[Rfam]
RNA sequence: AUAGUCAGCCGUUGGGGGGUGGGAACGGCUUCAUACAGGAGUUGGUGCGCAGUUACCCGGCUCCUAUAUGACGCCUUUCUUCACCCUCCAGCC
Numbered sequence: 001a002u003a004g005u006c007a008g009c010c011g012u013u014g015g016g017g018g019g020u021g022g023g024a025a026c027g028g029c030u031u032c033a034u035a036c037a038g039g040a041g042u043u044g045g046u047g048c049g050c051a052g053u054u055a056c057c058c059g060g061c062u063c064c065u066a067u068a069u070g071a072c073g074c075c076u077u078u079c080u081u082c083a084c085c086c087u088c089c090a091g092c093c
Stems, first nucleotide, its partner, number of pairs: 014089009023079003027075003031071005037065008045056003

A member of the RNA family "mir-337 microRNA precursor family" from Tupaia belangeri, 93 nucleotides long. Gene Ontology terms of the family: cellular response to glucose stimulus, long-term synaptic potentiation and miRNA-mediated post-transcriptional gene silencing. Taxonomically the source falls in Tupaia belangeri (Eukaryota, Teleostomi, Sarcopterygii, Tupaiidae).